This 88-nucleotide RNA from Desulfotomaculum copahuensis belongs to the Rfam family "c-di-GMP-I riboswitch aptamer".
[Rfam]
RNA sequence: GGGUGAUAAAGGCAAACCCGUUGAAAAGCGGAGACGUAAAGCCAUGGGGUCUAAGGUGUGUGAUGCAUAUGACAGCCCGGCUGCCGCC
Dot-bracket structure: ...........((....(((((....)))))....))..((((..((((((....((((.....))))..)))..)))))))......